[Rfam]
RNA: MIR4371 microRNA precursor family
Organism: Glycine max
RNA sequence: CCAUUAAGUGAUGACGUAACAGAUAGAGUGUCACGUCAUCAGGUCUAAUUACUGACACAUUAUUGUCACAUCAUUGAAGGUGAUGAUGUGACAAUGAGGUGUCAAUGAUAAGAGAUGAUGACAUAACACUUUGUCUGUCACAUCAUCACUUAACAGAA
Numbered sequence: 001c002c003a004u005u006a007a008g009u010g011a012u013g014a015c016g017u018a019a020c021a022g023a024u025a026g027a028g029u030g031u032c033a034c035g036u037c038a039u040c041a042g043g044u045c046u047a048a049u050u051a052c053u054g055a056c057a058c059a060u061u062a063u064u065g066u067c068a069c070a071u072c073a074u075u076g077a078a079g080g081u082g083a084u085g086a087u088g089u090g091a092c093a094a095u096g097a098g099g100u101g102u103c104a105a106u107g108a109u110a111a112g113a114g115a116u117g118a119u120g121a122c123a124u125a126a127c128a129c130u131u132u133g134u135c136u137g138u139c140a141c142a143u144c145a146u147c148a149c150u151u152a153a154c155a156g157a158a
Stems, first nucleotide, its partner, number of pairs: 001156001004153011016141002019138013033124001035122007044113003048109004054103005070087005